[Rfam]
RNA: Pseudomonas sRNA P26
Organism: Bowmanella dokdonensis
RNA sequence: AAAGACAGAUUAUUUGCCUGAUUUCAGGCAAAGGCUGGUGAUCAUUUGAUCACCAGCCU
Numbered sequence: 001a002a003a004g005a006c007a008g009a010u011u012a013u014u015u016g017c018c019u020g021a022u023u024u025c026a027g028g029c030a031a032a033g034g035c036u037g038g039u040g041a042u043c044a045u046u047u048g049a050u051c052a053c054c055a056g057c058c059u
Stems, first nucleotide, its partner, number of pairs: 015030004033058010